Annotation: The family of this 133-nucleotide RNA sequence from Podarcis lilfordi is "Small nucleolar RNA U109". Rfam classes the family as an H/ACA-box small nucleolar RNA. The literature on the family includes a 2005 paper in Nucleic Acids Res by Gu et al., "A novel experimental approach for systematic identification of box H/ACA snoRNAs from eukaryotes".
[Rfam]
Nucleotides: 133
Stems, first nucleotide, its partner, number of pairs: 003059004019043004024038001071126004083113002087109001090105005
Number, partner (000 for none) and nucleotide at each position: 001000c002000u003059g004058c005057a006056u007000g008000a009000g010000a011000g012000a013000a014000a015000c016000u017000g018000u019043c020042a021041u022040u023000c024038c025000u026000c027000u028000u029000u030000c031000c032000u033000u034000u035000u036000a037000a038024g039000a040022a041021g042020u043019g044000a045000a046000u047000a048000u049000u050000c051000u052000u053000u054000c055000a056006a057005u058004g059003c060000u061000g062000u063000a064000a065000a066000a067000a068000u069000a070000a071126g072125g073124a074123g075000u076000u077000u078000u079000c080000a081000g082000g083113g084112c085000c086000a087109c088000a089000u090105g091104c092103c093102u094101u095000g096000g097000a098000g099000c100000a101094g102093a103092g104091g105090c106000u107000g108000a109087g110000u111000g112084g113083u114000a115000g116000u117000g118000u119000a120000u121000u122000u123074u124073u125072c126071c127000u128000c129000c130000a131000u132000u133000a